[Rfam]
RNA sequence: UGGUUUCUGUCUUUGGUUAUCUAGCUGUAUGAGUUAUAACACUUUUCAUAAAGCUAGAUAACCGAAAGUAGAAAUAA
Number, nucleotide and partner (000 for none) at each position: 001u077002g000003g075004u074005u073006u000007c071008u070009g069010u068011c000012u066013u065014u064015g063016g062017u061018u060019a059020u058021c057022u056023a055024g054025c053026u052027g000028u050029a049030u048031g047032a046033g045034u000035u000036a000037u000038a000039a000040c000041a000042c000043u000044u000045u033046u032047c031048a030049u029050a028051a000052a026053g025054c024055u023056a022057g021058a020059u019060a018061a017062c016063c015064g014065a013066a012067a000068g010069u009070a008071g007072a000073a005074a004075u003076a000077a001
The family of this 77-nucleotide RNA sequence from Triplophysa tibetana is "mir-9/mir-79 microRNA precursor family". The source organism's lineage runs through Eukaryota, Bilateria, Gnathostomata, Osteoglossocephalai and Triplophysa. On this family, see Lau et al., Science 2001: "An abundant class of tiny RNAs with probable regulatory roles in Caenorhabditis elegans".